The family of this 84-nucleotide RNA sequence from Atlanticothrix silvestris is "Fluoride riboswitch aptamer (crcB RNA motif)".
RNA sequence: UAAUUUAAUGGCGAUGGAGCUCGCCAAAACCGCCCUUCCAGUUCUGUAAAUGUGAUCUGGAUGGCUGAUGGUUCCUACUUUCCU
Numbered sequence: 001u002a003a004u005u006u007a008a009u010g011g012c013g014a015u016g017g018a019g020c021u022c023g024c025c026a027a028a029a030c031c032g033c034c035c036u037u038c039c040a041g042u043u044c045u046g047u048a049a050a051u052g053u054g055a056u057c058u059g060g061a062u063g064g065c066u067g068a069u070g071g072u073u074c075c076u077a078c079u080u081u082c083c084u
Stems, first nucleotide, its partner, number of pairs: 010025004016075006032065003